[Rfam]
RNA sequence: CCACAGGCUCCCUGGGACACUAACAGAGGAAUUGUGCCCCGGGGAGAGCGCGCCGAGCUCCCAGAAGGGCUGCAGCGCGCACAGCUGGACCCGGGAGCAGCU
Numbered sequence: 001c002c003a004c005a006g007g008c009u010c011c012c013u014g015g016g017a018c019a020c021u022a023a024c025a026g027a028g029g030a031a032u033u034g035u036g037c038c039c040c041g042g043g044g045a046g047a048g049c050g051c052g053c054c055g056a057g058c059u060c061c062c063a064g065a066a067g068g069g070c071u072g073c074a075g076c077g078c079g080c081a082c083a084g085c086u087g088g089a090c091c092c093g094g095g096a097g098c099a100g101c102u
Stems, first nucleotide, its partner, number of pairs: 007098006014091002018087002020084002028078001032075004036070004042062005049055002
The family of this 102-nucleotide sequence from Vulpes vulpes is "mir-8904 microRNA precursor family". The match comes from Rfam's covariance-model search (98 bits). The family's consensus secondary structure was predicted with RNAalifold.